Description: Bacillus sRNA ncr1575: a 199-nucleotide RNA sequence from Niallia nealsonii. The match comes from Rfam's covariance-model search (150 bits). Lineage of the source: Bacteria > Bacillati > Bacilli > Bacillaceae > Niallia. On this family, see Irnov et al., Nucleic Acids Res 2010: "Identification of regulatory RNAs in Bacillus subtilis". The family's consensus secondary structure is taken from published work. The family's RNA type in Rfam is small RNA.
RNA sequence: UAUUAAUGUUAAGAGGGAGUGAUGGGUGAACGAUGAAGUACUAAUCUUAUUUUUCCAAGUUGAAACUAAAAAUUUCUGCUUAUUAAAAUAGGAUUAGUCUGCCCAUUUUCCAUAUAGAUGCACAGCUAUUUAUUUGAUAGCUUAUUUGUGUACAAAAAAUGCCGACUAAUCCUUCCAAUAAAAUUGGGAGGAUUUUUUA
Numbered sequence: 001u002a003u004u005a006a007u008g009u010u011a012a013g014a015g016g017g018a019g020u021g022a023u024g025g026g027u028g029a030a031c032g033a034u035g036a037a038g039u040a041c042u043a044a045u046c047u048u049a050u051u052u053u054u055c056c057a058a059g060u061u062g063a064a065a066c067u068a069a070a071a072a073u074u075u076c077u078g079c080u081u082a083u084u085a086a087a088a089u090a091g092g093a094u095u096a097g098u099c100u101g102c103c104c105a106u107u108u109u110c111c112a113u114a115u116a117g118a119u120g121c122a123c124a125g126c127u128a129u130u131u132a133u134u135u136g137a138u139a140g141c142u143u144a145u146u147u148g149u150g151u152a153c154a155a156a157a158a159a160u161g162c163c164g165a166c167u168a169a170u171c172c173u174u175c176c177a178a179u180a181a182a183a184u185u186g187g188g189a190g191g192a193u194u195u196u197u198u199a
Base pairs, nucleotide, nucleotide: 016111017110018109019108023105024104025103026102030098031097042096043095044094045093046092047091048090049089050088051087052086054085058080059079060078062076063075064074065073120146125141126140127139128138129137130136168194169193170192171191172190173189174188175187176186177185178184